[Rfam]
RNA sequence: GCUGGAGGACUAAGAAGGCUGAGUCUGAUGAAGCAAGACUGCUGAUACAAUCCUCCUUUUAAAAAAAAAAAAAAAAAAAAGGGUUGGAGAGAGCAGCCUAUACUGGAGAAUAUCAUAGGGCUGACUGCACUACUCAACAUUC
Numbered sequence: 001g002c003u004g005g006a007g008g009a010c011u012a013a014g015a016a017g018g019c020u021g022a023g024u025c026u027g028a029u030g031a032a033g034c035a036a037g038a039c040u041g042c043u044g045a046u047a048c049a050a051u052c053c054u055c056c057u058u059u060u061a062a063a064a065a066a067a068a069a070a071a072a073a074a075a076a077a078a079a080a081g082g083g084u085u086g087g088a089g090a091g092a093g094c095a096g097c098c099u100a101u102a103c104u105g106g107a108g109a110a111u112a113u114c115a116u117a118g119g120g121c122u123g124a125c126u127g128c129a130c131u132a133c134u135c136a137a138c139a140u141u142c
Stems, first nucleotide, its partner, number of pairs: 004056006017043003023039004081135004092126002094123006104115003
Description
Shown here is a 142-nucleotide RNA from Pipistrellus kuhlii, a member of the family "Small Cajal body specific RNA 4". The literature on the family includes a 2002 paper in EMBO J by Darzacq et al., "Cajal body-specific small nuclear RNAs: a novel class of 2'-O-methylation and pseudouridylation guide RNAs". The family is grouped with related families in Rfam's "SCARNA4 clan". scaRNAs are a specific class of small nuclear RNAs which localise to the Cajal bodies and guide the modification of RNA polymerase II transcribed spliceosomal RNAs U1, U2, U4, U5 and U12. ACA26 belongs to the H/ACA box class of guide RNAs as it has the predicted hairpin-hinge-hairpin-tail structure, conserved H/ACA-box motifs and is found associated with GAR1. Gene Ontology terms of the family: nucleolus, RNA processing and Cajal body. The source organism's lineage runs through Eukaryota, Craniata, Teleostomi, Euteleostomi and Pipistrellus. Pairs were carried over by alignment from the consensus structure, which was predicted with RNAfold.